The family of this 46-nucleotide RNA sequence from Aedes aegypti is "Histone 3' UTR stem-loop". The source organism's lineage runs through Eukaryota, Hexapoda, Pterygota, Endopterygota and Stegomyia.
RNA sequence: CAAACGGCCUUUUUCAAGGCCACCAACAUUUCGAUAAAGAGUUAGU
Number, nucleotide and partner (000 for none) at each position: 001c000002a000003a000004a000005c000006g021007g020008c019009c018010u017011u016012u000013u000014u000015c000016a011017a010018g009019g008020c007021c006022a000023c000024c000025a000026a000027c000028a000029u000030u000031u000032c000033g000034a000035u000036a000037a000038a000039g000040a000041g000042u000043u000044a000045g000046u000
On this family, see Williams and Marzluff, Nucleic Acids Res 1995: "The sequence of the stem and flanking sequences at the 3' end of histone mRNA are critical determinants for the binding of the stem-loop binding protein". The match comes from Rfam's covariance-model search (43 bits).